[Rfam]
The family of this 117-nucleotide sequence is "Streptomyces-metK RNA".
RNA sequence: GCGAGACACGUGCCCCGUUGACCCGAGGCGACCGAUAAACUGGUCUCGGAAUGAGCCGGGCGCAGCCCCCGGCCACUCCACCCGCGAUCAGCCAGCAGCCGCUGCAACCCCAGGGAG
Numbered sequence: 001g002c003g004a005g006a007c008a009c010g011u012g013c014c015c016c017g018u019u020g021a022c023c024c025g026a027g028g029c030g031a032c033c034g035a036u037a038a039a040c041u042g043g044u045c046u047c048g049g050a051a052u053g054a055g056c057c058g059g060g061c062g063c064a065g066c067c068c069c070c071g072g073c074c075a076c077u078c079c080a081c082c083c084g085c086g087a088u089c090a091g092c093c094a095g096c097a098g099c100c101g102c103u104g105c106a107a108c109c110c111c112a113g114g115g116a117g
Stems, first nucleotide, its partner, number of pairs: 048079003052075002056072005093104004